[Rfam]
RNA sequence: UUCUUAUCUAGAGAGGUGGAGGGAAAGGCCCUGUGAAACCCGGCAACCAAUACAGCAUCUGCUGUAUAUGGUGCCAAUUCCUGCAGCAGUAGCUGAAAGAUGAGAA
Numbered sequence: 001u002u003c004u005u006a007u008c009u010a011g012a013g014a015g016g017u018g019g020a021g022g023g024a025a026a027g028g029c030c031c032u033g034u035g036a037a038a039c040c041c042g043g044c045a046a047c048c049a050a051u052a053c054a055g056c057a058u059c060u061g062c063u064g065u066a067u068a069u070g071g072u073g074c075c076a077a078u079u080c081c082u083g084c085a086g087c088a089g090u091a092g093c094u095g096a097a098a099g100a101u102g103a104g105a106a
Stems, first nucleotide, its partner, number of pairs: 001106008013041001015040003021031003026082003042075004047071002050067004079098001084095004
Shown here is a 106-nucleotide RNA from Proteiniclasticum aestuarii, a member of the family "SAM riboswitch aptamer (S box leader)". It scores 89 bits against the family's covariance model. Pairs were carried over by alignment from the consensus structure, which is taken from published work.